[Rfam]
Rfam assigns this 76-nucleotide RNA from Cnephaeus nilssonii to the family "mir-9229 microRNA precursor family". NCBI's taxonomy places the organism under Eukaryota, Bilateria, Vertebrata, Euteleostomi, Cnephaeus. The family's consensus secondary structure was predicted with RNAalifold. It scores 76 bits against the family's covariance model.
RNA sequence: GAGACACCCGUGUGGAGAAAGACUUGCUUCAGUGGGGCUCUGGUGCUCACUGAGUCUGUCCCUUGAGUGUGUCGCU
Numbered sequence: 001g002a003g004a005c006a007c008c009c010g011u012g013u014g015g016a017g018a019a020a021g022a023c024u025u026g027c028u029u030c031a032g033u034g035g036g037g038c039u040c041u042g043g044u045g046c047u048c049a050c051u052g053a054g055u056c057u058g059u060c061c062c063u064u065g066a067g068u069g070u071g072u073c074g075c076u
Stems, first nucleotide, its partner, number of pairs: 001075001003073005009067001011065002014062002017059001019057001021056003029053008037044002

Description
Its family is annotated with miRNA-mediated post-transcriptional gene silencing and RISC complex in the Gene Ontology.